[Rfam]
RNA sequence: UCGGCCCCGGUUCACGUAAGGCAAUCCCGCCCUGCGACCCGGCGCC
Number, nucleotide and partner (000 for none) at each position: 001u000002c000003g046004g045005c044006c000007c042008c041009g040010g039011u000012u000013c000014a000015c036016g035017u034018a033019a000020g031021g030022c029023a000024a000025u000026c000027c000028c000029g022030c021031c020032c000033u018034g017035c016036g015037a000038c000039c010040c009041g008042g007043c000044g005045c004046c003

A member of the RNA family "L31-Actinobacteria ribosomal protein leader" from Streptomyces albireticuli, 46 nucleotides long. Clan: Ribosomal Protein L31 Leader clan.